SAM (S-adenosyl methionine) riboswitch aptamer: a 117-nucleotide sequence from Actinomadura darangshiensis.

RNA sequence: GGUCAUGAGCGCCAGCGCCAAGCCCCGGCUCGCUGGCCGGCAACCCUUCGUCCGCGAUGGGGUGCCCCGGGUGAAGACCUGGCCGGACGCAACACCGCGUCCCGGCAAGCGCGGAUC
Numbered sequence: 001g002g003u004c005a006u007g008a009g010c011g012c013c014a015g016c017g018c019c020a021a022g023c024c025c026c027g028g029c030u031c032g033c034u035g036g037c038c039g040g041c042a043a044c045c046c047u048u049c050g051u052c053c054g055c056g057a058u059g060g061g062g063u064g065c066c067c068c069g070g071g072u073g074a075a076g077a078c079c080u081g082g083c084c085g086g087a088c089g090c091a092a093c094a095c096c097g098c099g100u101c102c103c104g105g106c107a108a109g110c111g112c113g114g115a116u117c
Base pairs, nucleotide, nucleotide: 001079002078003077004076009038011037012036013035014034015033016032021030022029039066040065041064044062045061046060048057049056082106083105084104085103086101087100088099089098090097